This 87-nucleotide RNA sequence from Acanthaster planci belongs to the Rfam family "mir-7 microRNA precursor family". A search with the family's covariance model found it, with a score of 59 bits. Pairs were carried over by alignment from the consensus structure, which was predicted with PFOLD. This family represents the microRNA (miRNA) precursor mir-7. NCBI's taxonomy places the organism under Eukaryota, Bilateria, Asteroidea, Valvatacea, Acanthaster.

RNA sequence: UGCCUGUCCCCCCAUGGAAGACUAGUGAUUUUGUUGUUGUACCAAAAGAAAACAUAAAAUCACUGUCUGCCACUGGGGUGGCUGGCC
Numbered sequence: 001u002g003c004c005u006g007u008c009c010c011c012c013c014a015u016g017g018a019a020g021a022c023u024a025g026u027g028a029u030u031u032u033g034u035u036g037u038u039g040u041a042c043c044a045a046a047a048g049a050a051a052a053c054a055u056a057a058a059a060u061c062a063c064u065g066u067c068u069g070c071c072a073c074u075g076g077g078g079u080g081g082c083u084g085g086c087c
Stems, first nucleotide, its partner, number of pairs: 002086003006082003010078005015072003019068004025063007035054004